[Rfam]
RNA: Eukaryotic large subunit ribosomal RNA, nucleotides 422 to 648
Organism: Lasiodiplodia theobromae
RNA sequence: CGCUUGCAACCAGACUUGUCCGCAGUUGCUCAGCCGGUCUCCUGACCGGCGUACUCUUCUGCGGCCAGGCCAGCAUCAGUUCGGGCGGUCGGAUAAAGGCCUCGGGAAUGUGGCUCCUCUCGGGGAGUGUUAUAGCCCGGGGUGCAAUGCGGCCAGCCUGGACUGAGGAACUCGCUUCGGCAAGGAUGCUGGCGUAAUGGUUGUAAGCGGCCCGUCUUGAAACACGG
Numbered sequence: 001c002g003c004u005u006g007c008a009a010c011c012a013g014a015c016u017u018g019u020c021c022g023c024a025g026u027u028g029c030u031c032a033g034c035c036g037g038u039c040u041c042c043u044g045a046c047c048g049g050c051g052u053a054c055u056c057u058u059c060u061g062c063g064g065c066c067a068g069g070c071c072a073g074c075a076u077c078a079g080u081u082c083g084g085g086c087g088g089u090c091g092g093a094u095a096a097a098g099g100c101c102u103c104g105g106g107a108a109u110g111u112g113g114c115u116c117c118u119c120u121c122g123g124g125g126a127g128u129g130u131u132a133u134a135g136c137c138c139g140g141g142g143u144g145c146a147a148u149g150c151g152g153c154c155a156g157c158c159u160g161g162a163c164u165g166a167g168g169a170a171c172u173c174g175c176u177u178c179g180g181c182a183a184g185g186a187u188g189c190u191g192g193c194g195u196a197a198u199g200g201u202u203g204u205a206a207g208c209g210g211c212c213c214g215u216c217u218u219g220a221a222a223c224a225c226g227g
Stems, first nucleotide, its partner, number of pairs: 001209012017067002020064005071191007212227004